[Rfam]
RNA sequence: GCCGCCUUAGCUCAGUUGGCAGAGCGACGCACUCGUAAUGCGUAGGUCGACAGUUCGAUUCUGUCAGGCGGCU
Numbered sequence: 001g002c003c004g005c006c007u008u009a010g011c012u013c014a015g016u017u018g019g020c021a022g023a024g025c026g027a028c029g030c031a032c033u034c035g036u037a038a039u040g041c042g043u044a045g046g047u048c049g050a051c052a053g054u055u056c057g058a059u060u061c062u063g064u065c066a067g068g069c070g071g072c073u
Stems, first nucleotide, its partner, number of pairs: 001072007010025004027043005049065005